[Rfam]
RNA: SAM riboswitch aptamer (S box leader)
Organism: Pseudopedobacter sp.
RNA sequence: GAUUUAUAAAGAAGUGGCGAGAGAUUAGGCUCACAGACCCACUGGCAACCCUUAGCAUAAAAGAGAAGGUGCCAAUUCCUACCCGAAAGGGAGCUAUAAAUU
Dot-bracket structure: ((((((((....(((((...(((..[[[[)))......)))))((((.(((((.........)))..))))))....]]]](((....)))...))))))))